The family of this 247-nucleotide sequence from Paenibacillus solanacearum is "BsrG". The family's consensus secondary structure was predicted with WAR. By type it is a small RNA. Gene Ontology terms of the family: toxin activity and autolysis. From the family's description: bsrE, bsrG and bsrH pair through intermolecular interactions with antisense sRNAs. They form type I toxin/antitoxin system that includes an mRNA encoding for a short, toxic peptide (bsrE, bsrG and bsrH) and an antitoxin that is comprised of an antisense RNA. bsrG encodes a 39-amino-acid toxin, and the 180 nucleotide antisense sRNA called SR4 acts as the antitoxin (they overlap by 123 nucleotides). SR4 interaction with the 3'UTR of bsrG RNA promotes bsrG degradation and inhibits its translation. The family has 6 seed sequences and 614 matches in Rfam 15.1. Taxonomically the source falls in Paenibacillus (Bacteria, Bacillota, Bacilli, Paenibacillaceae).
RNA sequence: GCAAUAUAUCGGCUUGCAAUGGGCGGUCGGCUAAUCUCCCGGAAGGGAGGUGAUGCCAUGGAGGUUUACCAAGCGAUUUCCUUAAUGAUCAUGUUCGGCAUGUUCAUUCUGGCUUUGCUAACUUACCUCAAAAAGAAAUAGACCGCCCUGUGACGAGGUAUGCGGUCUAUUCUUUGAGACAGGCCCUCUAACAAGCCGUCCGCCCUUGUAGCGGAUAUUGCCCGGGAGUCAUGUUCGCGCAUGGCUC
Numbered sequence: 001g002c003a004a005u006a007u008a009u010c011g012g013c014u015u016g017c018a019a020u021g022g023g024c025g026g027u028c029g030g031c032u033a034a035u036c037u038c039c040c041g042g043a044a045g046g047g048a049g050g051u052g053a054u055g056c057c058a059u060g061g062a063g064g065u066u067u068a069c070c071a072a073g074c075g076a077u078u079u080c081c082u083u084a085a086u087g088a089u090c091a092u093g094u095u096c097g098g099c100a101u102g103u104u105c106a107u108u109c110u111g112g113c114u115u116u117g118c119u120a121a122c123u124u125a126c127c128u129c130a131a132a133a134a135g136a137a138a139u140a141g142a143c144c145g146c147c148c149u150g151u152g153a154c155g156a157g158g159u160a161u162g163c164g165g166u167c168u169a170u171u172c173u174u175u176g177a178g179a180c181a182g183g184c185c186c187u188c189u190a191a192c193a194a195g196c197c198g199u200c201c202g203c204c205c206u207u208g209u210a211g212c213g214g215a216u217a218u219u220g221c222c223c224g225g226g227a228g229u230c231a232u233g234u235u236c237g238c239g240c241a242u243g244g245c246u247c
Base pairs, nucleotide, nucleotide: 001221002220003219004218006216007215010198011197012196013195014194015193017150018149021148022147023146025143027141032053034051036049037048038047039046040045060122063119064118065117074087075086097114098113099112160174200214201213202212203211226247227246228245229244230243231242232241233240234239